[Rfam]
RNA sequence: GAGAUAUGAUGAGGUUUAAUUGGUCCGUGUUUCUGAUUCAACCGUGACAGACAAUUUUUUUUUUACCAAACUCUGAUCUC
Numbered sequence: 001g002a003g004a005u006a007u008g009a010u011g012a013g014g015u016u017u018a019a020u021u022g023g024u025c026c027g028u029g030u031u032u033c034u035g036a037u038u039c040a041a042c043c044g045u046g047a048c049a050g051a052c053a054a055u056u057u058u059u060u061u062u063u064u065a066c067c068a069a070a071c072u073c074u075g076a077u078c079u080c
Stems, first nucleotide, its partner, number of pairs: 001080004

Overview
Small nucleolar RNA SNORD18: an 80-nucleotide RNA sequence from Gossypium gossypioides. Gene Ontology terms of the family: RNA processing and nucleolus. The family has 16 seed sequences and 2,622 matches in Rfam 15.1. The base pairs follow the family's consensus structure, which was predicted with PFOLD. It is annotated as a C/D-box small nucleolar RNA. Lineage of the source: Eukaryota > Streptophytina > Magnoliopsida > Mesangiospermae > Gossypium. It scores 45 bits against the family's covariance model.